[Rfam]
RNA sequence: AAAGUGCAGUUAUGGAAGGAGAAGCUAGCUCCACUAUAUAGCAAGUCUUAUGCUGCUGAAGGCAACGACAGUGGUAAAGCAUAGACAGUGAAACAUUCAAGCAAAAACUAAAUGGUGAACGUAAUAGCCCCUAAAGUGUGAUGUAGUGGAAGUCGAUAUGUUCUACCACAUAGUAGGCAAAAGAAGAUUGGAGGUCAAAUUAGUGAAAAUCCAAAAAUUUUCAACCACUGGAGUCGCAGGUGU
Numbered sequence: 001a002a003a004g005u006g007c008a009g010u011u012a013u014g015g016a017a018g019g020a021g022a023a024g025c026u027a028g029c030u031c032c033a034c035u036a037u038a039u040a041g042c043a044a045g046u047c048u049u050a051u052g053c054u055g056c057u058g059a060a061g062g063c064a065a066c067g068a069c070a071g072u073g074g075u076a077a078a079g080c081a082u083a084g085a086c087a088g089u090g091a092a093a094c095a096u097u098c099a100a101g102c103a104a105a106a107a108c109u110a111a112a113u114g115g116u117g118a119a120c121g122u123a124a125u126a127g128c129c130c131c132u133a134a135a136g137u138g139u140g141a142u143g144u145a146g147u148g149g150a151a152g153u154c155g156a157u158a159u160g161u162u163c164u165a166c167c168a169c170a171u172a173g174u175a176g177g178c179a180a181a182a183g184a185a186g187a188u189u190g191g192a193g194g195u196c197a198a199a200u201u202a203g204u205g206a207a208a209a210u211c212c213a214a215a216a217a218u219u220u221u222c223a224a225c226c227a228c229u230g231g232a233g234u235c236g237c238a239g240g241u242g243u
Base pairs, nucleotide, nucleotide: 012037013036014035015034018032019031020030021029039091041089042088045086046085047084048083049081051076052075053074054073055072056071057070058069061066127234128233130231131230146228147227148226149225152178153177154176157172158171159170160169183222184221185220186219187218188217189216
This 243-nucleotide RNA from Orientia tsutsugamushi belongs to the Rfam family "Group II catalytic intron D1-D4-6". Pairs were carried over by alignment from the consensus structure. The literature on the family includes a 2001 paper in EMBO J by Chu et al., "Control of branch-site choice by a group II intron". Rfam's curators write: Group II introns are found in rRNA, tRNA and mRNA of organelles in fungi, plants and protists, and also in mRNA in bacteria. The source organism's lineage runs through Bacteria, Alphaproteobacteria, Rickettsiaceae, Rickettsieae and Orientia tsutsugamushi.